[Rfam]
RNA: SAM riboswitch aptamer (S box leader)
Organism: Mucilaginibacter corticis
RNA sequence: AAUUUAUCCAGAAAGACCGAGGGAAAGGCCCUUUGACGUCUUGGCAACCUGUACUGUUAACUACAUUAAAAGGUGCCAAAUCCUGCUCUGUAAAAGAGAAAGAUAAGCU
Numbered sequence: 001a002a003u004u005u006a007u008c009c010a011g012a013a014a015g016a017c018c019g020a021g022g023g024a025a026a027g028g029c030c031c032u033u034u035g036a037c038g039u040c041u042u043g044g045c046a047a048c049c050u051g052u053a054c055u056g057u058u059a060a061c062u063a064c065a066u067u068a069a070a071a072g073g074u075g076c077c078a079a080a081u082c083c084u085g086c087u088c089u090g091u092a093a094a095a096g097a098g099a100a101a102g103a104u105a106a107g108c109u
Stems, first nucleotide, its partner, number of pairs: 001109001003107006013042005021031003026084003043077004048073002050069001052068002081101001086098004
Dot-bracket structure: (.((((((....(((((...(((..[[[)))......)))))((((.(((.((.............)))..))))))...(]]].((((.....))))..))))))).)